[Rfam]
RNA: msiK RNA
RNA sequence: GCGCGGAGUCCCUCACUCGGAUCGUCCGGCACGUUCCUGCCGGUGGGAGGACGCUUUC
Numbered sequence: 001g002c003g004c005g006g007a008g009u010c011c012c013u014c015a016c017u018c019g020g021a022u023c024g025u026c027c028g029g030c031a032c033g034u035u036c037c038u039g040c041c042g043g044u045g046g047g048a049g050g051a052c053g054c055u056u057u058c
Stems, first nucleotide, its partner, number of pairs: 009050002012047004026043006